[Rfam]
RNA sequence: AGCCCGCUGUGUCCGUGCUGAGAUUUCGUCACACACCAGAAGGGCUGGUGAGACUUCCAAGAUAAGUGAAGCG
Numbered sequence: 001a002g003c004c005c006g007c008u009g010u011g012u013c014c015g016u017g018c019u020g021a022g023a024u025u026u027c028g029u030c031a032c033a034c035a036c037c038a039g040a041a042g043g044g045c046u047g048g049u050g051a052g053a054c055u056u057c058c059a060a061g062a063u064a065a066g067u068g069a070a071g072c073g
Base pairs, nucleotide, nucleotide: 002072003071008066010064011063012062013061016059017058020056021055022054024053025052026051027050028049029048030047

Notes: A member of the RNA family "mir-3492 microRNA precursor family" from Schistosoma haematobium, 73 nucleotides long. Rfam links the family to the GO terms miRNA-mediated post-transcriptional gene silencing and RISC complex. A search with the family's covariance model found it, with a score of 54 bits.